Description
Rfam assigns this 211-nucleotide RNA sequence from Corchorus olitorius to the family "Plant small nucleolar RNA U3". On this family, see Zwieb, Nucleic Acids Res 1997: "The uRNA database". Small nucleolar RNAs (snoRNAs) are involved in the processing and modification of rRNA in the nucleolus. There are two main classes of snoRNAs: the box C/D class, and the box H/ACA class. U3 snoRNA is a member of the box C/D class. It is annotated as a C/D-box small nucleolar RNA. Gene Ontology terms of the family: nucleolus and RNA processing. Its Rfam clan is "U3 clan".

RNA sequence: ACGACCUUACUUGAACAGGAUCUGUUCUAUAGGCUCGUACCUCUGUAUCCUUUAGCACGAAGGAGACAGGAUCUCAAGUCUGGUUGAUGAGCCACGACCUUGUGAUCAGAGCGUGAUUAACAGCUUCCUGGCCUCCAAGACCAGACAGCAGUAGAGGAUCGUUCUCAGCUAGUGCUCUGGCUGGGAUGGUCACAAGGUUGUCUGACAGACU
Number, nucleotide and partner (000 for none) at each position: 001a038002c037003g035004a000005c033006c032007u031008u000009a000010c000011u000012u000013g027014a026015a025016c024017a023018g022019g000020a000021u000022c018023u017024g016025u015026u014027c013028u000029a000030u000031a007032g006033g005034c000035u003036c000037g002038u001039a000040c000041c000042u000043c069044u068045g067046u066047a000048u064049c063050c062051u061052u060053u059054a000055g000056c000057a000058c000059g053060a052061a051062g050063g049064a048065g000066a046067c045068a044069g043070g000071a000072u000073c000074u000075c000076a000077a000078g210079u209080c208081u207082g206083g000084u000085u000086g000087a000088u000089g000090a000091g000092c000093c000094a000095c000096g000097a198098c197099c196100u195101u194102g193103u192104g191105a190106u189107c188108a187109g000110a163111g162112c161113g160114u000115g000116a000117u000118u000119a000120a152121c151122a000123g149124c148125u147126u000127c000128c144129u143130g142131g141132c000133c139134u138135c000136c000137a000138a134139g133140a000141c131142c130143a129144g128145a000146c000147a125148g124149c123150a000151g121152u120153a000154g000155a000156g000157g000158a000159u000160c113161g112162u111163u110164c000165u184166c183167a182168g181169c180170u179171a178172g177173u000174g000175c000176u000177c172178u171179g170180g169181c168182u167183g166184g165185g000186a000187u108188g107189g106190u105191c104192a103193c102194a101195a100196g099197g098198u097199u000200g000201u000202c000203u000204g000205a000206c082207a081208g080209a079210c078211u000